[Rfam]
RNA: SAM riboswitch aptamer (S box leader)
RNA sequence: UUCUUAUCAAGAGAGGUGGAGGGACUGGCCCUUUGAAGCCCGGCAACCGUUGACAAUUGUCAGUGCGGUGCUAAUUCCAGCGGAGUAAUGGCUCUGGCAGAUAAGGU
Numbered sequence: 001u002u003c004u005u006a007u008c009a010a011g012a013g014a015g016g017u018g019g020a021g022g023g024a025c026u027g028g029c030c031c032u033u034u035g036a037a038g039c040c041c042g043g044c045a046a047c048c049g050u051u052g053a054c055a056a057u058u059g060u061c062a063g064u065g066c067g068g069u070g071c072u073a074a075u076u077c078c079a080g081c082g083g084a085g086u087a088a089u090g091g092c093u094c095u096g097g098c099a100g101a102u103a104a105g106g107u
Stems, first nucleotide, its partner, number of pairs: 002106007013041001015040003021031003025080004042072004047068002049064004076099001081096006
Dot-bracket structure: .(((((((....(.(((...(((.[[[[)))......))))((((.((((((........))))..))))))...(]]]]((((((....))))))..)))))))).